The record is an 84-nucleotide RNA from Ornithorhynchus anatinus, which matches "mir-130 microRNA precursor family" in Rfam.
RNA sequence: CCCAAGCCCGGGCUCUUUCCACUGAGCCACGCUGCUUCUCUACUUAGUACAGUGUGGCUCAGUGGAAAGAGCUUGGGCUUCGGA
Dot-bracket structure: .((.((((((.((((((((..(((((((((.......................)))))))))..)))))))).))))))..)).
Taxonomically the source falls in Ornithorhynchus (Eukaryota, Metazoa, Eumetazoa, Tetrapoda). Rfam 15.1 lists 2,580 matches to the family in 658 species.